The record is a 66-nucleotide RNA from Jaculus jaculus, which matches "mir-718 microRNA precursor family" in Rfam.
RNA sequence: GUGCCGACGGCCUGCAAGAUGGCGGCGGGCCCGAGCGCCGCCUCUUCCGCCUUGCCGGGCGUCGCA
Dot-bracket structure: (((.(..((((..((..((.((.(((((((....)).))))))).)).))...))))...).))).
A search with the family's covariance model found it, with a score of 65 bits.